[Rfam]
This 169-nucleotide sequence from Butyrivibrio sp. M55 belongs to the Rfam family "Clostridiales-1 RNA". The organism belongs to Butyrivibrio, within Bacteria. The family's RNA type in Rfam is small RNA.
RNA sequence: UGAUAUAGGGAAGAAAAUGUAUGACGACUGCUGUGUUUACACAGAGCAGUCGUCACACAUUUGAUGACCGAACAGACAUGAGUAAAAAAGAUAUGCGAAUGAAAAUGAGCAUAUCGAUUUACGAAUGGCUGUAGCAUGACGAGAGCGAAGCGGAGUCAUGCAUAUAUCA
Numbered sequence: 001u002g003a004u005a006u007a008g009g010g011a012a013g014a015a016a017a018u019g020u021a022u023g024a025c026g027a028c029u030g031c032u033g034u035g036u037u038u039a040c041a042c043a044g045a046g047c048a049g050u051c052g053u054c055a056c057a058c059a060u061u062u063g064a065u066g067a068c069c070g071a072a073c074a075g076a077c078a079u080g081a082g083u084a085a086a087a088a089a090g091a092u093a094u095g096c097g098a099a100u101g102a103a104a105a106u107g108a109g110c111a112u113a114u115c116g117a118u119u120u121a122c123g124a125a126u127g128g129c130u131g132u133a134g135c136a137u138g139a140c141g142a143g144a145g146c147g148a149a150g151c152g153g154a155g156u157c158a159u160g161c162a163u164a165u166a167u168c169a
Base pairs, nucleotide, nucleotide: 001169002168003167004166005165006164007163010068013065016061017060018059019058020057022055023054024053025052026051027050028049029048030047031044032043033042034041035040072132073131074130075129077127078126079125082122083121084120085119090115091114092113093112094111095110096109134161135160136159137158138157139156140155145151146150